[Rfam]
RNA sequence: GUGCCUUAAACUAAUGAGUAAGGAAAAUAUAGAGCUUUGGUAACGCUUAGCUAUGCUAAAUAAUUAAGCGACCAUAUUUUUGAAAAGGUAAAGGUCGUCCCAAGGCAGUAUGAACUACUUUUUCAGACAGUCUGGUGAAGCGAUCUACCUU
Numbered sequence: 001g002u003g004c005c006u007u008a009a010a011c012u013a014a015u016g017a018g019u020a021a022g023g024a025a026a027a028u029a030u031a032g033a034g035c036u037u038u039g040g041u042a043a044c045g046c047u048u049a050g051c052u053a054u055g056c057u058a059a060a061u062a063a064u065u066a067a068g069c070g071a072c073c074a075u076a077u078u079u080u081u082g083a084a085a086a087g088g089u090a091a092a093g094g095u096c097g098u099c100c101c102a103a104g105g106c107a108g109u110a111u112g113a114a115c116u117a118c119u120u121u122u123u124c125a126g127a128c129a130g131u132c133u134g135g136u137g138a139a140g141c142g143a144u145c146u147a148c149c150u151u
Stems, first nucleotide, its partner, number of pairs: 004023005033052004039046001054070004085151005092146007101135001104132003108128001111125004
RNA: U12 minor spliceosomal RNA